Background: A member of the RNA family "6S-Flavo RNA" from Flavobacterium akiainvivens, 107 nucleotides long. The family's consensus secondary structure is taken from published work. Rfam classes the family as a small RNA. The organism belongs to Flavobacterium, within Bacteria.
RNA sequence: ACUCAACGCCAAUUCUUUAAAAUGAGCGAAUCGCCGCUUCUAUAGCACGCUGCCUCGUCGCAGAUCCUUGAACAGCGGGUUAGCCCAAAACUUGUCUUUACGAGUUU
Numbered sequence: 001a002c003u004c005a006a007c008g009c010c011a012a013u014u015c016u017u018u019a020a021a022a023u024g025a026g027c028g029a030a031u032c033g034c035c036g037c038u039u040c041u042a043u044a045g046c047a048c049g050c051u052g053c054c055u056c057g058u059c060g061c062a063g064a065u066c067c068u069u070g071a072a073c074a075g076c077g078g079g080u081u082a083g084c085c086c087a088a089a090a091c092u093u094g095u096c097u098u099u100a101c102g103a104g105u106u107u
Stems, first nucleotide, its partner, number of pairs: 023087002026084002034078005044068002050063004